RNA: pemK RNA
RNA sequence: AUAAUGAUACUUCCGUCUUGCACGCAUCACAGCAUGGGGCGGCCCGGGGAGAACCUCCGGGGGGCGAGUUGGCCCAUGA
Numbered sequence: 001a002u003a004a005u006g007a008u009a010c011u012u013c014c015g016u017c018u019u020g021c022a023c024g025c026a027u028c029a030c031a032g033c034a035u036g037g038g039g040c041g042g043c044c045c046g047g048g049g050a051g052a053a054c055c056u057c058c059g060g061g062g063g064g065c066g067a068g069u070u071g072g073c074c075c076a077u078g079a
Stems, first nucleotide, its partner, number of pairs: 012076001013042008043061003047057003062075003